[Rfam]
RNA sequence: AAAUUCUGGCAAUCGCUCCAGUUCUGACUGGAGAGGAAAGUCCAUGCUCGCACGGACCUGAGAUGGCCGUAGUGAUCGCGCUUAGCGAAACAAUAAGCUAAGGCAGUUGCAUAAGCAGCUGACGGCGGGUAGAACGCCUAAGUCCUUGAGAUACGGCCGACAUACCCUGAAAGUGCCACAGUGACGGAGCUGCAUAAGAAAUUAUGCAGGUGGAACGAGGUAAACCCCGCGAGUGAGAAACCCAAACUAUGGUAGGGGCACUUUUCCGAAGGAAUUGAACAGAGGAAAAGGCAGGUGCACAUCUGCAGAUAGAUGAUUGCCUUCCACCAGUACGAGGUGAAAACCAUUUGAGUACGUGGAAAACAAAACAUGGCUUAUAGAA
Numbered sequence: 001a002a003a004u005u006c007u008g009g010c011a012a013u014c015g016c017u018c019c020a021g022u023u024c025u026g027a028c029u030g031g032a033g034a035g036g037a038a039a040g041u042c043c044a045u046g047c048u049c050g051c052a053c054g055g056a057c058c059u060g061a062g063a064u065g066g067c068c069g070u071a072g073u074g075a076u077c078g079c080g081c082u083u084a085g086c087g088a089a090a091c092a093a094u095a096a097g098c099u100a101a102g103g104c105a106g107u108u109g110c111a112u113a114a115g116c117a118g119c120u121g122a123c124g125g126c127g128g129g130u131a132g133a134a135c136g137c138c139u140a141a142g143u144c145c146u147u148g149a150g151a152u153a154c155g156g157c158c159g160a161c162a163u164a165c166c167c168u169g170a171a172a173g174u175g176c177c178a179c180a181g182u183g184a185c186g187g188a189g190c191u192g193c194a195u196a197a198g199a200a201a202u203u204a205u206g207c208a209g210g211u212g213g214a215a216c217g218a219g220g221u222a223a224a225c226c227c228c229g230c231g232a233g234u235g236a237g238a239a240a241c242c243c244a245a246a247c248u249a250u251g252g253u254a255g256g257g258g259c260a261c262u263u264u265u266c267c268g269a270a271g272g273a274a275u276u277g278a279a280c281a282g283a284g285g286a287a288a289a290g291g292c293a294g295g296u297g298c299a300c301a302u303c304u305g306c307a308g309a310u311a312g313a314u315g316a317u318u319g320c321c322u323u324c325c326a327c328c329a330g331u332a333c334g335a336g337g338u339g340a341a342a343a344c345c346a347u348u349u350g351a352g353u354a355c356g357u358g359g360a361a362a363a364c365a366a367a368a369c370a371u372g373g374c375u376u377a378u379a380g381a382a
Stems, first nucleotide, its partner, number of pairs: 004382003008321007016033006038376003042373005047237005052070004057066002076232005081102006103123001104121006124227002127167004136157003142152003173225002175221003190209008241257003261290007291306006323360005330355004

This 382-nucleotide RNA from Planococcus salinus belongs to the Rfam family "Bacterial RNase P class B". The organism belongs to Planococcus, within Bacteria. It scores 327 bits against the family's covariance model. It is annotated as a ribozyme. From the family's description: Ribonuclease P (RNase P) is a ubiquitous endoribonuclease, found in archaea, bacteria and eukarya as well as chloroplasts and mitochondria. Its best characterised activity is the generation of mature 5'-ends of tRNAs by cleaving the 5'-leader elements of precursor-tRNAs. Cellular RNase Ps are ribonucleoproteins. RNA from bacterial RNase Ps retains its catalytic activity in the absence of the protein subunit, i.e. it is a ribozyme. Isolated eukaryotic and archaeal RNase P RNA has not been shown to retain its catalytic function, but is still essential for the catalytic activity of the holoenzyme. Although the archaeal and eukaryotic holoenzyme s have a much greater protein content than the bacterial ones, the RNA cores from all the three lineages are homologous -- helices corresponding to P1, P2, P3, P4, and P10/11 are common to all cellular RNase P RNAs. Yet, there is considerable sequence variation, particularly among the eukaryotic RNAs. Clan: RNaseP clan.